RNA sequence: UAGUAGUGUGACAUGCCCGUUUGGGUUGAACUCUGAUGUUGUGUAUUUAAUUAUUAUUAAUUACUUUUUGGUAACGGGGUGUUACACAUAUU
Numbered sequence: 001u002a003g004u005a006g007u008g009u010g011a012c013a014u015g016c017c018c019g020u021u022u023g024g025g026u027u028g029a030a031c032u033c034u035g036a037u038g039u040u041g042u043g044u045a046u047u048u049a050a051u052u053a054u055u056a057u058u059a060a061u062u063a064c065u066u067u068u069u070g071g072u073a074a075c076g077g078g079g080u081g082u083u084a085c086a087c088a089u090a091u092u
Stems, first nucleotide, its partner, number of pairs: 002092004006087009016078006